[Rfam]
RNA sequence: GUCUCGGUGAAGAACUCUAGACCAGGAAGUGCCGCAUGACACUAACAGCCGCUGCUUUGCUGCUGCUGUAAGUGUACAUCCCUGUAUCUAUACCUCUCUGGUUUGUUGUGGGGUGUAUAUCCCAUUUGCAACUGCUUGUUUCAGCUGUGUGUGUGAUUCGAAAUGUGUCUCUGAGGGC
Numbered sequence: 001g002u003c004u005c006g007g008u009g010a011a012g013a014a015c016u017c018u019a020g021a022c023c024a025g026g027a028a029g030u031g032c033c034g035c036a037u038g039a040c041a042c043u044a045a046c047a048g049c050c051g052c053u054g055c056u057u058u059g060c061u062g063c064u065g066c067u068g069u070a071a072g073u074g075u076a077c078a079u080c081c082c083u084g085u086a087u088c089u090a091u092a093c094c095u096c097u098c099u100g101g102u103u104u105g106u107u108g109u110g111g112g113g114u115g116u117a118u119a120u121c122c123c124a125u126u127u128g129c130a131a132c133u134g135c136u137u138g139u140u141u142c143a144g145c146u147g148u149g150u151g152u153g154u155g156a157u158u159c160g161a162a163a164u165g166u167g168u169c170u171c172u173g174a175g176g177g178c
Stems, first nucleotide, its partner, number of pairs: 003177003067130008075117007085108002088105001092102003
The record is a 178-nucleotide RNA sequence from Triticum turgidum, which matches "Small nucleolar RNA Z112" in Rfam. NCBI's taxonomy places the organism under Eukaryota, Poaceae, Pooideae, Triticinae, Triticum turgidum. Rfam links the family to the GO terms RNA processing and nucleolus. A reference for the family is Liang et al. (2002), "A novel gene organization: intronic snoRNA gene clusters from Oryza sativa", Nucleic Acids Res.